The family of this 131-nucleotide RNA sequence from Ictidomys tridecemlineatus is "Small nucleolar RNA SNORA3/SNORA45 family". The family has 6 seed sequences and 2,080 matches in Rfam 15.1.

RNA sequence: CCCGAGACACGAGUCACAUCCCAACAUGGCUCUUGUCCUGAUGUGCUGGAGUCCUUGGAGAGGAUCUGCUGAUCUUGAUUCACUGGUGGAGGCAAUCAGUGCCCCAGUUAGUACCCAGGUCAGAAACAUGC
Numbered sequence: 001c002c003c004g005a006g007a008c009a010c011g012a013g014u015c016a017c018a019u020c021c022c023a024a025c026a027u028g029g030c031u032c033u034u035g036u037c038c039u040g041a042u043g044u045g046c047u048g049g050a051g052u053c054c055u056u057g058g059a060g061a062g063g064a065u066c067u068g069c070u071g072a073u074c075u076u077g078a079u080u081c082a083c084u085g086g087u088g089g090a091g092g093c094a095a096u097c098a099g100u101g102c103c104c105c106a107g108u109u110a111g112u113a114c115c116c117a118g119g120u121c122a123g124a125a126a127c128a129u130g131c
Stems, first nucleotide, its partner, number of pairs: 002058005007052002012047002015045006024036003069123007077115001082112005089105001091103003
Annotation
A search with the family's covariance model found it, with a score of 107 bits. The base pairs follow the family's consensus structure, which was predicted with RNAalifold. It is annotated as an H/ACA-box small nucleolar RNA. Rfam links the family to the GO terms RNA processing and nucleolus. Rfam's curators write: The members of this family belong to the H/ACA class of snoRNAs which are thought to guide the sites of modification of uridines to pseudouridines. This family includes mouse snoMBI-28 and human homologues ACA3 (SNORA3) and ACA3-2 (SNORA45). Both ACA3 and ACA3-2 share the same host gene. MBI-28, ACA3 and ACA3-2 are all predicted to guide the pseudouridylation of residues in 28S rRNA.